[Rfam]
RNA sequence: ACCCCGGUAUUAUUGCUGUCAUGGGUUUUAAUCGAGCUUAGCCUUGUUCAUUUUUUUACACAACACCCCAUAAAAGAUCCUACACGGCCCGCUCAAGCCUGCAGGACCCAAAGAGACGCAGAGGCAAAAAACGCCCAAAAACGCCUGAAAAAAGGCUCUGCGGUGCUUUCUCAGCACAA
Numbered sequence: 001a002c003c004c005c006g007g008u009a010u011u012a013u014u015g016c017u018g019u020c021a022u023g024g025g026u027u028u029u030a031a032u033c034g035a036g037c038u039u040a041g042c043c044u045u046g047u048u049c050a051u052u053u054u055u056u057u058a059c060a061c062a063a064c065a066c067c068c069c070a071u072a073a074a075a076g077a078u079c080c081u082a083c084a085c086g087g088c089c090c091g092c093u094c095a096a097g098c099c100u101g102c103a104g105g106a107c108c109c110a111a112a113g114a115g116a117c118g119c120a121g122a123g124g125c126a127a128a129a130a131a132c133g134c135c136c137a138a139a140a141a142c143g144c145c146u147g148a149a150a151a152a153a154g155g156c157u158c159u160g161c162g163g164u165g166c167u168u169u170c171u172c173a174g175c176a177c178a179a
Stems, first nucleotide, its partner, number of pairs: 023100006034092001036090001041088003044084001046083002052077007163177002166174001

About this RNA: Rfam assigns this 179-nucleotide RNA sequence from Pseudomonas agarici to the family "Pseudomonas sRNA P1". On this family, see Livny et al., Nucleic Acids Res 2006: "Identification of 17 Pseudomonas aeruginosa sRNAs and prediction of sRNA-encoding genes in 10 diverse pathogens using the bioinformatic tool sRNAPredict2". It is annotated as a non-coding RNA gene. Pairs were carried over by alignment from the consensus structure, which was predicted with RNAalifold.